[Rfam]
Nucleotides: 088
Base pairs, nucleotide, nucleotide: 003086004085005084007082008081009080010079011078013076014075015074016073017072019070020069021068022067023066024065025064026063027062028061029060030059031058032057033056034054035053036052037051039049040048041047
Number, partner (000 for none) and nucleotide at each position: 001000g002000u003086a004085c005084u006000c007082c008081u009080u010079c011078c012000g013076u014075c015074c016073c017072a018000u019070a020069a021068u022067a023066u024065a025064a026063g027062a028061g029060c030059g031058u032057u033056u034054u035053u036052g037051a038000g039049a040048c041047u042000a043000u044000g045000u046000u047041a048040g049039u050000g051037u052036c053035a054034a055000a056033a057032a058031a059030c060029g061028c062027u063026c064025u065024u066023a067022u068021a069020u070019u071000a072017u073016g074015g075014g076013a077000u078011g079010g080009a081008g082007g083000g084005a085004g086003u087000a088000u
Rfam assigns this 88-nucleotide RNA from Hordeum vulgare to the family "MIR1120/MIR1122 microRNA precursor family". The family's consensus secondary structure was predicted with RNAalifold. Lineage of the source: Eukaryota > Streptophytina > Petrosaviidae > commelinids > Hordeum vulgare.